[Rfam]
RNA: FMN riboswitch aptamer (RFN element)
RNA sequence: AACGUGCUCCGGGGUCGGUGUAAGUCCGAACCGGCGGUUAUAGUCCGCGACCCGCACGCAAACGGCCGGCAACGGUUCGAAUGCAAACGGUUGAACCGGUGGAAUUCCGGUACCGACAGUUAAAGUCUGGAUGGGAGAAGCACGAG
Dot-bracket structure: ..((((((.(.....(((.......))).[[((((((.....[[))))...((...................................))....(((((.......)))))]])).(((.....]]))).......).))))))..